[Rfam]
About this RNA: Rfam assigns this 63-nucleotide RNA from Rattus norvegicus to the family "U7 small nuclear RNA". It scores 35 bits against the family's covariance model. The family's consensus secondary structure was predicted with PFOLD. From the family's description: Animal histone pre-mRNAs are spliced by a different mechanism than nuclear pre-mRNAs and self-splicing introns. This processing involves the U7 snRNP, which contains only one RNA species: U7. The 5' end of U7 RNA is thought to base-pair to a conserved spacer element downstream of the cleavage site in histone pre-mRNA. This family contains a number of annotated U7 pseudogenes. The organism belongs to Rattus, within Eukaryota.
RNA sequence: GAGUGAACACAACUCUUCUGGAAUUUUUCUAGCAGAAUUUCUGACUUUUGUUGGAGAACCUAA
Numbered sequence: 001g002a003g004u005g006a007a008c009a010c011a012a013c014u015c016u017u018c019u020g021g022a023a024u025u026u027u028u029c030u031a032g033c034a035g036a037a038u039u040u041c042u043g044a045c046u047u048u049u050g051u052u053g054g055a056g057a058a059c060c061u062a063a
Stems, first nucleotide, its partner, number of pairs: 035060001038057008